[Rfam]
Nucleotides: 069
Base pairs, nucleotide, nucleotide: 002068003067004066005065006064007063008062009061010059011058012057013056014055016053017052018051019050020049022047023046024045025044026043027042
Number, partner (000 for none) and nucleotide at each position: 001000a002068u003067u004066g005065a006064c007063a008062u009061c010059u011058u012057a013056c014055c015000c016053g017052a018051c019050a020049g021000c022047a023046u024045u025044a026043g027042a028000c029000u030000u031000g032000u033000u034000a035000u036000g037000c038000a039000u040000u041000c042027u043026c044025u045024a046023a047022u048000a049020c050019u051018g052017u053016c054000u055014g056013g057012u058011a059010a060000u061009g062008a063007u064006g065005u066004u067003a068002a069000u